Small nucleolar RNA snoR14: an 87-nucleotide RNA from Musa balbisiana.
RNA sequence: AUGAAGUGAUGUGAAGAUUCAUCGUCUGUCAAUCCACUGACAUACAUCCGUGAUGUUACUCUUGAUAUUCCGAGAUGAUCUGAUCAU
Number, nucleotide and partner (000 for none) at each position: 001a087002u086003g085004a084005a000006g000007u000008g000009a000010u000011g000012u000013g000014a000015a000016g000017a000018u000019u000020c000021a000022u000023c000024g000025u000026c000027u000028g000029u000030c000031a000032a000033u000034c000035c000036a000037c000038u000039g000040a000041c000042a000043u000044a000045c000046a000047u000048c000049c000050g000051u000052g000053a000054u000055g000056u000057u000058a000059c000060u000061c000062u000063u000064g000065a000066u000067a000068u000069u000070c000071c000072g000073a000074g000075a000076u000077g000078a000079u000080c000081u000082g000083a000084u004085c003086a002087u001
On this family, see Brown et al., RNA 2001: "Multiple snoRNA gene clusters from Arabidopsis". By type it is a C/D-box small nucleolar RNA.